[Rfam]
RNA sequence: UCCAGUAAAGGGCAGACUUAAUGAAAAGAAAGGGCGCAAAGUGACAGGUCUAAAGCUAAAUGCUAAGAUGGCUGUGCUACCUGA
Numbered sequence: 001u002c003c004a005g006u007a008a009a010g011g012g013c014a015g016a017c018u019u020a021a022u023g024a025a026a027a028g029a030a031a032g033g034g035c036g037c038a039a040a041g042u043g044a045c046a047g048g049u050c051u052a053a054a055g056c057u058a059a060a061u062g063c064u065a066a067g068a069u070g071g072c073u074g075u076g077c078u079a080c081c082u083g084a
Base pairs, nucleotide, nucleotide: 012037013036017032018031019030022027040078041077042076043075045074046073047072048069049068050067055063056062
This 84-nucleotide RNA sequence from Aquibacillus koreensis belongs to the Rfam family "c-di-GMP-I riboswitch aptamer". It scores 58 bits against the family's covariance model.